[Rfam]
RNA sequence: ACGGGAACAGCACGGCCGCAAAUCUGACUCGCCACGACUCGUGGCUUGGGAUUGCGGAAGUGU
Numbered sequence: 001a002c003g004g005g006a007a008c009a010g011c012a013c014g015g016c017c018g019c020a021a022a023u024c025u026g027a028c029u030c031g032c033c034a035c036g037a038c039u040c041g042u043g044g045c046u047u048g049g050g051a052u053u054g055c056g057g058a059a060g061u062g063u
Stems, first nucleotide, its partner, number of pairs: 010063004016057006024050002031045006
The family of this 63-nucleotide sequence from Halogeometricum limi is "S15-Halobacteria ribosomal protein leader".
NCBI's taxonomy places the organism under Archaea, Methanobacteriati, Halobacteria, Halobacteriales, Halogeometricum.
A reference for the family is Eckert and Weinberg (2020), "Discovery of 20 novel ribosomal leader candidates in bacteria and archaea", BMC Microbiol.